[Rfam]
RNA sequence: AAUCUAGGAAGGCAACCUAAGUUCGCCGCGUCCUGCGACAAUGGUUGCAUACCGACAUCCUGCGUG
Numbered sequence: 001a002a003u004c005u006a007g008g009a010a011g012g013c014a015a016c017c018u019a020a021g022u023u024c025g026c027c028g029c030g031u032c033c034u035g036c037g038a039c040a041a042u043g044g045u046u047g048c049a050u051a052c053c054g055a056c057a058u059c060c061u062g063c064g065u066g
Stems, first nucleotide, its partner, number of pairs: 012048006025039001027037003052066001056062001
A member of the RNA family "Bacillaceae-1 RNA" from Bacillus sp. FJAT-50079, 66 nucleotides long.